[Rfam]
RNA: Group II catalytic intron D1-D4-3
RNA sequence: GUCGUCGCGAGGCGGGGUCUGAAGGAAGCCCAAUCCGAAACUGCGGGGCGAUGAACAAAAACCGGAUAUGAGGCGUGAUGCAUCCGGGGCGAGCGGGCACGUGACCGCGAAGCCCUCCAUCUGCGGUUGGGGUGCAUUUUGUCCCACAGGGAUUUCCUUCGGUCAUAAAUCCGGCGUCUAUGCAGUGAAGGUAACGUGU
Numbered sequence: 001g002u003c004g005u006c007g008c009g010a011g012g013c014g015g016g017g018u019c020u021g022a023a024g025g026a027a028g029c030c031c032a033a034u035c036c037g038a039a040a041c042u043g044c045g046g047g048g049c050g051a052u053g054a055a056c057a058a059a060a061a062c063c064g065g066a067u068a069u070g071a072g073g074c075g076u077g078a079u080g081c082a083u084c085c086g087g088g089g090c091g092a093g094c095g096g097g098c099a100c101g102u103g104a105c106c107g108c109g110a111a112g113c114c115c116u117c118c119a120u121c122u123g124c125g126g127u128u129g130g131g132g133u134g135c136a137u138u139u140u141g142u143c144c145c146a147c148a149g150g151g152a153u154u155u156c157c158u159u160c161g162g163u164c165a166u167a168a169a170u171c172c173g174g175c176g177u178c179u180a181u182g183c184a185g186u187g188a189a190g191g192u193a194a195c196g197u198g199u
Stems, first nucleotide, its partner, number of pairs: 002015005028199002031196001036191001040186006046179005062174006073166001075164001077156001080155001082153004087115004093108004